[Rfam]
RNA sequence: GUCAUACUACGGUGCAACGCCCAGUAAAGUAAACGAUGACCCAUAAUGAACUUCGGGGUAAAAUACCCAUCAAAUGAAAAAUUGCUGCUGACCUGGGGAGUGUUUCCCGGGUCGGUUUCUUUU
Numbered sequence: 001g002u003c004a005u006a007c008u009a010c011g012g013u014g015c016a017a018c019g020c021c022c023a024g025u026a027a028a029g030u031a032a033a034c035g036a037u038g039a040c041c042c043a044u045a046a047u048g049a050a051c052u053u054c055g056g057g058g059u060a061a062a063a064u065a066c067c068c069a070u071c072a073a074a075u076g077a078a079a080a081a082u083u084g085c086u087g088c089u090g091a092c093c094u095g096g097g098g099a100g101u102g103u104u105u106c107c108c109g110g111g112u113c114g115g116u117u118u119c120u121u122u123u
Stems, first nucleotide, its partner, number of pairs: 001040005010035002014030002041048001057071003087116011
Notes:
Enterobacteria greA leader: a 123-nucleotide RNA sequence from Klebsiella pneumoniae. Taxonomically the source falls in Klebsiella pneumoniae subsp. pneumoniae (Bacteria, Pseudomonadati, Gammaproteobacteria, Klebsiella). On this family, see Naville and Gautheret, Genome Biol 2010: "Premature terminator analysis sheds light on a hidden world of bacterial transcriptional attenuation". Rfam links the family to the GO term regulation of gene expression. The family's consensus secondary structure is taken from published work.